[Rfam]
Nucleotides: 068
Stems, first nucleotide, its partner, number of pairs: 002047005019036006
Number, partner (000 for none) and nucleotide at each position: 001000c002047u003046c004045c005044g006043a007000g008000g009000a010000g011000c012000g013000c014000u015000g016000c017000a018000a019036g020035g021034c022033u023032g024031u025000c026000g027000u028000u029000c030000g031024a032023c033022a034021g035020u036019c037000c038000c039000a040000g041000g042000c043006u044005c045004g046003g047002a048000c049000c050000g051000a052000a053000a054000c055000g056000g057000c058000g059000c060000u061000c062000a063000u064000c065000c066000g067000a068000c
Shown here is a 68-nucleotide RNA sequence from Rhodocyclus tenuis, a member of the family "SAH (S-adenosyl-L-homocysteine) riboswitch aptamer". Rfam 15.1 lists 1,354 matches to the family in 1,132 species. Gene Ontology terms of the family: S-adenosylhomocysteine metabolic process and regulation of gene expression. The family's consensus secondary structure is taken from published work.